The family of this 68-nucleotide RNA sequence from Bombyx mori is "mir-2774 microRNA precursor family".
[Rfam]
RNA sequence: ACAGCAUUCGGACCGUUAGUCUACCGAACAAUUAUACCCGCUCGGUGGAAGAUCUUUCCCUCCGUCGU
Number, nucleotide and partner (000 for none) at each position: 001a000002c000003a000004g065005c064006a000007u000008u000009c000010g059011g058012a057013c000014c000015g053016u052017u051018a000019g000020u049021c048022u047023a046024c045025c044026g043027a042028a000029c040030a000031a000032u000033u000034a000035u000036a000037c000038c000039c000040g029041c000042u027043c026044g025045g024046u023047g022048g021049a020050a000051g017052a016053u015054c000055u000056u000057u012058c011059c010060c000061u000062c000063c000064g005065u004066c000067g000068u000
The literature on the family includes a 2010 paper in BMC Genomics by Liu et al., "MicroRNAs of Bombyx mori identified by Solexa sequencing". The organism belongs to Bombyx, within Eukaryota. The base pairs follow the family's consensus structure, which was predicted with RNAalifold. The match comes from Rfam's covariance-model search (66 bits).